[Rfam]
The record is a 129-nucleotide RNA sequence from Struthidea cinerea, which matches "U11 spliceosomal RNA" in Rfam. A search with the family's covariance model found it, with a score of 108 bits. The family's RNA type in Rfam is spliceosomal small nuclear RNA. The family is grouped with related families in Rfam's "U1 clan".
RNA sequence: AAAAAGGGCUUCUGUCGUGUGUGGCACGGGGGGGUUAUGCGCCACCCCCGCGGAAUCGACAUCAAGAGAUUUCGGAAGCACAAUUUUUGUAAAGAAGGGCCGCCGGUAACCGUUCGUUCCGGCACCCCC
Dot-bracket structure: .......((((((((((....)))))((((((.((.....))..))))))(((((((..........)))))))))))).................(((..(((((.(((.....)))))))).)))..